Rfam assigns this 75-nucleotide RNA from Parnassius apollo to the family "Mammalian CPEB3 ribozyme". About the family: The mammalian CPEB3 ribozyme is a self cleaving RNA located in the second intron of the CPEB3 gene which belongs to a family of genes regulating messenger RNA polyadenylation. This ribozyme is highly conserved and found only in mammals. Pairs were carried over by alignment from the consensus structure, which is taken from published work.
RNA sequence: AUAGACAGUGGGGGUCAUUGUAGAAGCGUGCUCGUCGCGACCCUUGCCCGCCCUUUUCAGGGCUGCAAUUCUACA
Numbered sequence: 001a002u003a004g005a006c007a008g009u010g011g012g013g014g015u016c017a018u019u020g021u022a023g024a025a026g027c028g029u030g031c032u033c034g035u036c037g038c039g040a041c042c043c044u045u046g047c048c049c050g051c052c053c054u055u056u057u058c059a060g061g062g063c064u065g066c067a068a069u070u071c072u073a074c075a
Stems, first nucleotide, its partner, number of pairs: 011044006019075007026038003048065001050063005
It scores 47 bits against the family's covariance model.